Notes
The record is a 91-nucleotide sequence from Orenia metallireducens, which matches "c-di-GMP-I riboswitch aptamer" in Rfam. On this family, see Sudarsan et al., Science 2008: "Riboswitches in Eubacteria Sense the Second Messenger Cyclic Di-GMP". Rfam links the family to the GO term cyclic-di-GMP binding. Rfam's curators write: GEMM was predicted in a large-scale screen for bacterial structured RNA regulatory elements. Lineage of the source: Bacteria > Bacillati > Bacillota > Halanaerobiales > Orenia. The family's consensus secondary structure is taken from published work.
RNA sequence: GGAAUAAGAGGGCAAAUUUAGCGAAAGCUAAAGACGCAAAGCUAUGGGUCUAAGGAUAUCUAAGAAUAUUUAUGAUUGCCAAGUUGCUGAU
Numbered sequence: 001g002g003a004a005u006a007a008g009a010g011g012g013c014a015a016a017u018u019u020a021g022c023g024a025a026a027g028c029u030a031a032a033g034a035c036g037c038a039a040a041g042c043u044a045u046g047g048g049u050c051u052a053a054g055g056a057u058a059u060c061u062a063a064g065a066a067u068a069u070u071u072a073u074g075a076u077u078g079c080c081a082a083g084u085u086g087c088u089g090a091u
Stems, first nucleotide, its partner, number of pairs: 012037002017032006040085004045081003048076003055070004